[Rfam]
RNA sequence: GAAUGUCUGGAGUAAACGUGACUCAAAUAUGUCCAACCUACAUUAGACAAUCGGGAGUCAAACACUGCACAGCUGUCGGGCCGUCACCGAACGGAUGGCAAAAAUGCAGCUAAGGCGCCCACCUGUGAGAGCGCAGGUUUGGACAUAUACGAGAACGUAUUUCGGACAAUCA
Numbered sequence: 001g002a003a004u005g006u007c008u009g010g011a012g013u014a015a016a017c018g019u020g021a022c023u024c025a026a027a028u029a030u031g032u033c034c035a036a037c038c039u040a041c042a043u044u045a046g047a048c049a050a051u052c053g054g055g056a057g058u059c060a061a062a063c064a065c066u067g068c069a070c071a072g073c074u075g076u077c078g079g080g081c082c083g084u085c086a087c088c089g090a091a092c093g094g095a096u097g098g099c100a101a102a103a104a105u106g107c108a109g110c111u112a113a114g115g116c117g118c119c120c121a122c123c124u125g126u127g128a129g130a131g132c133g134c135a136g137g138u139u140u141g142g143a144c145a146u147a148u149a150c151g152a153g154a155a156c157g158u159a160u161u162u163c164g165g166a167c168a169a170u171c172a
Stems, first nucleotide, its partner, number of pairs: 002170001004168011017157003030145007037137002053120003057116003062111001065109005076098002081094004

Overview: This 172-nucleotide RNA from Acetonema longum belongs to the Rfam family "6S / SsrS RNA". E. coli 6S RNA was the first non coding RNA to be sequenced, but its function was unknown until recently. By type it is a non-coding RNA gene. Rfam 15.1 lists 5,006 matches to the family in 4,638 species. The organism belongs to Acetonema longum, within Bacteria. A search with the family's covariance model found it, with a score of 54 bits.